RNA sequence: AAGUUUUUGUGUGACUGACGGAUGAGUGGAGUUUACCACGGGGAGCACAAAAGUAAAAAAUAGCCGACCGUCUGGGCAGAUUCA
Numbered sequence: 001a002a003g004u005u006u007u008u009g010u011g012u013g014a015c016u017g018a019c020g021g022a023u024g025a026g027u028g029g030a031g032u033u034u035a036c037c038a039c040g041g042g043g044a045g046c047a048c049a050a051a052a053g054u055a056a057a058a059a060a061u062a063g064c065c066g067a068c069c070g071u072c073u074g075g076g077c078a079g080a081u082u083c084a
Base pairs, nucleotide, nucleotide: 003054004053005052006051007050008049009048010047011046012045015042016041017072018071019070020069021068026039027038028037029036061079063077064076065075